[Rfam]
RNA sequence: GCCAUACUACGGUGCAUUAAGGGAGAAAGUAAACGAUGACCCUUAAGGAACUCUACGCUAAAAUGCCUCUUAAAAUGCAAAAUCGAUUCCGACUUAGGGGAAAGUUCUGAGUCAGGUUUCUUU
Numbered sequence: 001g002c003c004a005u006a007c008u009a010c011g012g013u014g015c016a017u018u019a020a021g022g023g024a025g026a027a028a029g030u031a032a033a034c035g036a037u038g039a040c041c042c043u044u045a046a047g048g049a050a051c052u053c054u055a056c057g058c059u060a061a062a063a064u065g066c067c068u069c070u071u072a073a074a075a076u077g078c079a080a081a082a083u084c085g086a087u088u089c090c091g092a093c094u095u096a097g098g099g100g101a102a103a104g105u106u107c108u109g110a111g112u113c114a115g116g117u118u119u120c121u122u123u
Stems, first nucleotide, its partner, number of pairs: 001040001003038003010035002014030002041048002057071001060068001088116002091113008